The record is a 76-nucleotide RNA sequence from Lactiplantibacillus mudanjiangensis, which matches "Bacillus-plasmid RNA" in Rfam. Rfam 15.1 lists 155 matches to the family in 128 species. It scores 31 bits against the family's covariance model. The base pairs follow the family's consensus structure, which is taken from published work.
[Rfam]
RNA sequence: UCCGUCAACGGUAAAUCGACGUAGAACGGCUUUUAGCCGUUCUAGGAGGCUUUAAGGAGUUGACGGACUCACUAGG
Numbered sequence: 001u002c003c004g005u006c007a008a009c010g011g012u013a014a015a016u017c018g019a020c021g022u023a024g025a026a027c028g029g030c031u032u033u034u035a036g037c038c039g040u041u042c043u044a045g046g047a048g049g050c051u052u053u054a055a056g057g058a059g060u061u062g063a064c065g066g067a068c069u070c071a072c073u074a075g076g
Base pairs, nucleotide, nucleotide: 001067002066003065004064005063006062007061008060009059